[Rfam]
RNA sequence: ACACGGGAAAGGAGGUGGUCCAAAGUUGUGUAGUUGUUGGACUCGUGAGGUGACUGCGCGCUAGUCGCCGUCCUCUGGACUCUCAGUAGUCGGACCGCACGGCGGCUCGGCUAAUUCGAAGCAGUUACCCGACCCCCGGGGUCCGGCCCUUGUCCAGCCGGUCCGUGCACCAGCGUGUACGGAGCCCCGGGGGUCGCCCUAU
Numbered sequence: 001a002c003a004c005g006g007g008a009a010a011g012g013a014g015g016u017g018g019u020c021c022a023a024a025g026u027u028g029u030g031u032a033g034u035u036g037u038u039g040g041a042c043u044c045g046u047g048a049g050g051u052g053a054c055u056g057c058g059c060g061c062u063a064g065u066c067g068c069c070g071u072c073c074u075c076u077g078g079a080c081u082c083u084c085a086g087u088a089g090u091c092g093g094a095c096c097g098c099a100c101g102g103c104g105g106c107u108c109g110g111c112u113a114a115u116u117c118g119a120a121g122c123a124g125u126u127a128c129c130c131g132a133c134c135c136c137c138g139g140g141g142u143c144c145g146g147c148c149c150u151u152g153u154c155c156a157g158c159c160g161g162u163c164c165g166u167g168c169a170c171c172a173g174c175g176u177g178u179a180c181g182g183a184g185c186c187c188c189g190g191g192g193g194u195c196g197c198c199c200u201a202u
Base pairs, nucleotide, nucleotide: 015057016056017055018054019053060111061110062109063107064106065105067103068102069101070100072097130196131195132194133193134192135191136190137189138188139187140186141185142184143161144160145159146158147157
RNA: Actinobacteria sRNA Ms_IGR-5